[Rfam]
The family of this 120-nucleotide RNA from Glycine soja is "MIR1520 microRNA precursor family". Clan: MIR1520 microRNA precursor clan.
RNA sequence: UUCUUAUUGAAUGAUAACUGUCACAUGUCAUGUUAUAAUUGGAUAUCAACUCCAUAGAAGAUGAAAUGAAUUAUUGUUUUUAUUGAUUAAUCAGAACAUGACACGUGACGGUUAUUAUCU
Numbered sequence: 001u002u003c004u005u006a007u008u009g010a011a012u013g014a015u016a017a018c019u020g021u022c023a024c025a026u027g028u029c030a031u032g033u034u035a036u037a038a039u040u041g042g043a044u045a046u047c048a049a050c051u052c053c054a055u056a057g058a059a060g061a062u063g064a065a066a067u068g069a070a071u072u073a074u075u076g077u078u079u080u081u082a083u084u085g086a087u088u089a090a091u092c093a094g095a096a097c098a099u100g101a102c103a104c105g106u107g108a109c110g111g112u113u114a115u116u117a118u119c120u
Stems, first nucleotide, its partner, number of pairs: 020109004026103001029100003033096002036093001038091003